[Rfam]
RNA sequence: CUCUGGAGAGAAUGUAGCGGCGAAGCCGGUUGCAUCACCGAAGAGGUAAGCCGGAGAAUGCUUUGGCGUAAUCUUUCAGGUACCGGGACAGAG
Numbered sequence: 001c002u003c004u005g006g007a008g009a010g011a012a013u014g015u016a017g018c019g020g021c022g023a024a025g026c027c028g029g030u031u032g033c034a035u036c037a038c039c040g041a042a043g044a045g046g047u048a049a050g051c052c053g054g055a056g057a058a059u060g061c062u063u064u065g066g067c068g069u070a071a072u073c074u075u076u077c078a079g080g081u082a083c084c085g086g087g088a089c090a091g092a093g
Stems, first nucleotide, its partner, number of pairs: 001093005012035007037081003040077002044075003050069002
RNA: Glycine riboswitch aptamer